[Rfam]
Description:
The record is a 167-nucleotide RNA sequence from Candidatus Chloroploca asiatica, which matches "M-box riboswitch aptamer (ykoK leader)" in Rfam. It scores 120 bits against the family's covariance model. Rfam links the family to the GO terms response to magnesium ion and regulation of gene expression. Rfam's curators write: M-box riboswitch, also know as ykoK leader is described as a metaloregulatory RNA that sense divalent metals and function as a genetic control element of genes related to divalent metal transport in bacteria.
RNA sequence: AUGCUCCUUCGUUAGGCGCGGCGCUCCCACAAACAAAGGUCAUUGCCCCGGCCCGUCGAGAGACGCUCAGGGGUACACGGCACUUCUCGGCUUAAGGGAUGUGUUAAGAUGACUGCAGCACGACUGCUACGUUGUGGGAACGCUUAAGCUCAACCAGGGGGGAGUUC
Numbered sequence: 001a002u003g004c005u006c007c008u009u010c011g012u013u014a015g016g017c018g019c020g021g022c023g024c025u026c027c028c029a030c031a032a033a034c035a036a037a038g039g040u041c042a043u044u045g046c047c048c049c050g051g052c053c054c055g056u057c058g059a060g061a062g063a064c065g066c067u068c069a070g071g072g073g074u075a076c077a078c079g080g081c082a083c084u085u086c087u088c089g090g091c092u093u094a095a096g097g098g099a100u101g102u103g104u105u106a107a108g109a110u111g112a113c114u115g116c117a118g119c120a121c122g123a124c125u126g127c128u129a130c131g132u133u134g135u136g137g138g139a140a141c142g143c144u145u146a147a148g149c150u151c152a153a154c155c156a157g158g159g160g161g162g163a164g165u166u167c
Base pairs, nucleotide, nucleotide: 005163006162007161008160009159010158011154012153013095015150016149017148020144021143022142025139026138027137028136029135030134031133032132039113040112041111042110043109045074046073047072048071049070054065055064056063057062080104081103082102083101086098087097088096115127116126117125